Shown here is a 198-nucleotide sequence from Trichonephila clavata, a member of the family "Wolbachia sRNA 46". For this family Rfam cites "Wolbachia small noncoding RNAs and their role in cross-kingdom communications" (Mayoral et al., Proc Natl Acad Sci U S A, 2014). A search with the family's covariance model found it, with a score of 68 bits. NCBI's taxonomy places the organism under Eukaryota, Eumetazoa, Chelicerata, Nephilidae, Trichonephila.

[Rfam]
RNA sequence: GUAAUUCACACAGCAAAUGGUGUCAUGCCAGUGCUUGACACUGGCAUCCAGGAAGUUUUUGCUUGCAAAUAAGUAAACUGAUUUGGUGAGCGUAGAAAGCAGCUGAUCUUAUGCUGAAUAAACGUUUUUGAUGAGGUUGCAUGAAAGCUGGAUCCCAGUGUCGAAGCACUGGGAUGACACCCUUCCCUGGUAGAGAUU
Numbered sequence: 001g002u003a004a005u006u007c008a009c010a011c012a013g014c015a016a017a018u019g020g021u022g023u024c025a026u027g028c029c030a031g032u033g034c035u036u037g038a039c040a041c042u043g044g045c046a047u048c049c050a051g052g053a054a055g056u057u058u059u060u061g062c063u064u065g066c067a068a069a070u071a072a073g074u075a076a077a078c079u080g081a082u083u084u085g086g087u088g089a090g091c092g093u094a095g096a097a098a099g100c101a102g103c104u105g106a107u108c109u110u111a112u113g114c115u116g117a118a119u120a121a122a123c124g125u126u127u128u129u130g131a132u133g134a135g136g137u138u139g140c141a142u143g144a145a146a147g148c149u150g151g152a153u154c155c156c157a158g159u160g161u162c163g164a165a166g167c168a169c170u171g172g173g174a175u176g177a178c179a180c181c182c183u184u185c186c187c188u189g190g191u192a193g194a195g196a197u198u
Stems, first nucleotide, its partner, number of pairs: 011193001013191002015188001021179006028172009037162008046153006